[Rfam]
RNA sequence: CUAAUCCGGCUGUGUGCGUGAAGGCGACCGAUAUGUUUUGAGCCAACACCAAAACAUAGGGAACCUGAUCCUCAGUUAAUGGCCGUCCUGCCCCUCGUUGAAAGGGGACUGCGAAAAUUAACGGGAGGUACCCACCUGCUUAUCAGCAGGUUCAAAACGUCGGUGUUGCACGGCAUGGCGGGGCUUGA
Dot-bracket structure: ..(.(((.(((((((.(((..............((((.((((((..............(((.((((...(....((((((.....(....(((((.......)))))...).....)))))))..)))).)))...............)))))).))))..........)))))))))).))).)...

6S / SsrS RNA: a 188-nucleotide sequence from Sulfobacillus thermosulfidooxidans. A search with the family's covariance model found it, with a score of 77 bits. Rfam's curators write: E. coli 6S RNA was the first non coding RNA to be sequenced, but its function was unknown until recently.